[Rfam]
Shown here is a 93-nucleotide RNA from Meridianimarinicoccus roseus, a member of the family "Rhodo-rpoB RNA". Rfam classes the family as a cis-regulatory element. The match comes from Rfam's covariance-model search (63 bits).
RNA sequence: CGGUCGGGAGGCACCCCCUGGGAAGGGUGCCGGGCAUAGACCGAUCCCCUUCAUGUUUCAGGGAUGCACCCCGUGGCCCCGGCGGUGGAUGCG
Numbered sequence: 001c002g003g004u005c006g007g008g009a010g011g012c013a014c015c016c017c018c019u020g021g022g023a024a025g026g027g028u029g030c031c032g033g034g035c036a037u038a039g040a041c042c043g044a045u046c047c048c049c050u051u052c053a054u055g056u057u058u059c060a061g062g063g064a065u066g067c068a069c070c071c072c073g074u075g076g077c078c079c080c081g082g083c084g085g086u087g088g089a090u091g092c093g
Base pairs, nucleotide, nucleotide: 001043002042003041004040005039010031011030012029013028014027015026016025065093066092067091068090069087071085072084073083